Shown here is a 328-nucleotide sequence from Candidatus Aquarickettsia rohweri, a member of the family "Alphaproteobacteria transfer-messenger RNA".
It scores 190 bits against the family's covariance model.
It is annotated as a non-coding RNA gene.
Rfam describes the family as follows. Bacterial tmRNA, also known as 10Sa RNA or SsrA, is named for its dual tRNA and mRNA-like properties. Its role is to liberate the mRNA from a stalled ribosome. To accomplish this part of the tmRNA is used as a reading frame that ends in a translation stop signal.
On this family, see Williams and Bartel, RNA 1996: "Phylogenetic analysis of tmRNA secondary structure".
The family is grouped with related families in Rfam's "tRNA clan".
RNA sequence: UUUGUUUUCAUUGAAAUUUUUAAGUGAUACAAUUUAAAUGCUAAUAUAGCUAUAGUAAUAAAGUCUACUUAUAAUAGAUGUAUUGGACUCGGGGGCGGUACCCGACGUCUCCACCAAAUUUAAUUAUAAGCUAAAUGGGGACGAAAUUAGCUUCGACAAGCAUUCAAAGAAGUAGUUUUACUCAGGGUGAUUCCUGUAAAUGAUCAUAUUAUAAUUGCAAACAAAAAGUUUGUACCUGCUAACAAUAAUAAUGCUUUCGCACUAGCUGCAUAGGCCUUAUUUUCAAUUAGCGCGGUUUGGGAUUACCGGGCAACAGAAAAUCCCAACA
Numbered sequence: 001u002u003u004g005u006u007u008u009c010a011u012u013g014a015a016a017u018u019u020u021u022a023a024g025u026g027a028u029a030c031a032a033u034u035u036a037a038a039u040g041c042u043a044a045u046a047u048a049g050c051u052a053u054a055g056u057a058a059u060a061a062a063g064u065c066u067a068c069u070u071a072u073a074a075u076a077g078a079u080g081u082a083u084u085g086g087a088c089u090c091g092g093g094g095g096c097g098g099u100a101c102c103c104g105a106c107g108u109c110u111c112c113a114c115c116a117a118a119u120u121u122a123a124u125u126a127u128a129a130g131c132u133a134a135a136u137g138g139g140g141a142c143g144a145a146a147u148u149a150g151c152u153u154c155g156a157c158a159a160g161c162a163u164u165c166a167a168a169g170a171a172g173u174a175g176u177u178u179u180a181c182u183c184a185g186g187g188u189g190a191u192u193c194c195u196g197u198a199a200a201u202g203a204u205c206a207u208a209u210u211a212u213a214a215u216u217g218c219a220a221a222c223a224a225a226a227a228g229u230u231u232g233u234a235c236c237u238g239c240u241a242a243c244a245a246u247a248a249u250a251a252u253g254c255u256u257u258c259g260c261a262c263u264a265g266c267u268g269c270a271u272a273g274g275c276c277u278u279a280u281u282u283u284c285a286a287u288u289a290g291c292g293c294g295g296u297u298u299g300g301g302a303u304u305a306c307c308g309g310g311c312a313a314c315a316g317a318a319a320a321u322c323c324c325a326a327c328a
Base pairs, nucleotide, nucleotide: 040050041049042048043047054182055181056180057179058178065175066174067173068172069171070170079162080161081160083159084158085157089105090104091103092102093101106143107142108141109140110139111138112137183196184195188206189205190204192203193202293308294307295306296305300324301323304320
Description
Taxonomically the source falls in Candidatus Aquarickettsia (Bacteria, Pseudomonadati, Pseudomonadota, Candidatus Midichloriaceae).